[Rfam]
RNA sequence: CAGUGCACUCGUCCAUAAAGUAGGAAACACUACACUGAUUGGAUGGUUAGUAGUGCUUUCUACUUUAUGGAUGACUGCACUGU
Numbered sequence: 001c002a003g004u005g006c007a008c009u010c011g012u013c014c015a016u017a018a019a020g021u022a023g024g025a026a027a028c029a030c031u032a033c034a035c036u037g038a039u040u041g042g043a044u045g046g047u048u049a050g051u052a053g054u055g056c057u058u059u060c061u062a063c064u065u066u067a068u069g070g071a072u073g074a075c076u077g078c079a080c081u082g083u
Base pairs, nucleotide, nucleotide: 014069015068016067017066018065019064020063021062022061023060026057028055029054030053031052032051033050

Description: This 83-nucleotide RNA from Callorhinchus milii belongs to the Rfam family "mir-142 microRNA precursor family". A reference for the family is Linsen et al. (2010), "Small RNA expression and strain specificity in the rat", BMC Genomics. A search with the family's covariance model found it, with a score of 76 bits. The base pairs follow the family's consensus structure, which was predicted with RNAalifold. The organism belongs to Callorhinchus, within Eukaryota.